[Rfam]
RNA sequence: CAGUGUUACAGCUCUUUCAGAGCUUGUCUAGAAGGUUUUCCGGUCCUGACUGGAAGACACUC
Numbered sequence: 001c002a003g004u005g006u007u008a009c010a011g012c013u014c015u016u017u018c019a020g021a022g023c024u025u026g027u028c029u030a031g032a033a034g035g036u037u038u039u040c041c042g043g044u045c046c047u048g049a050c051u052g053g054a055a056g057a058c059a060c061u062c
Base pairs, nucleotide, nucleotide: 035058036057037056038055039054040053041052042051043050044049

A member of the RNA family "U7 small nuclear RNA" from Microcebus murinus, 62 nucleotides long.
Rfam describes the family as follows. Animal histone pre-mRNAs are spliced by a different mechanism than nuclear pre-mRNAs and self-splicing introns. This processing involves the U7 snRNP, which contains only one RNA species: U7. The 5' end of U7 RNA is thought to base-pair to a conserved spacer element downstream of the cleavage site in histone pre-mRNA. This family contains a number of annotated U7 pseudogenes.
NCBI's taxonomy places the organism under Eukaryota, Opisthokonta, Craniata, Tetrapoda, Microcebus.